[Rfam]
RNA sequence: GUGCCUCAAUCUAAUGAGUAAGGAAAUUAUUGGGCCUUGGUAACUCUUGGCUAUGUCCGUUAAGGGCGACCGUAUUUUUGAUGGGCACAGGUCGUCCCCUUGAGCUGCGCGCCUACUUUGCGCGUCGUUCGGGUGAAGCGAUCUGCCUC
Numbered sequence: 001g002u003g004c005c006u007c008a009a010u011c012u013a014a015u016g017a018g019u020a021a022g023g024a025a026a027u028u029a030u031u032g033g034g035c036c037u038u039g040g041u042a043a044c045u046c047u048u049g050g051c052u053a054u055g056u057c058c059g060u061u062a063a064g065g066g067c068g069a070c071c072g073u074a075u076u077u078u079u080g081a082u083g084g085g086c087a088c089a090g091g092u093c094g095u096c097c098c099c100u101u102g103a104g105c106u107g108c109g110c111g112c113c114u115a116c117u118u119u120g121c122g123c124g125u126c127g128u129u130c131g132g133g134u135g136a137a138g139c140g141a142u143c144u145g146c147c148u149c
Stems, first nucleotide, its partner, number of pairs: 004023003008019001033052004039046001054068005083148004089144007098133002102130004108124005
RNA: U12 minor spliceosomal RNA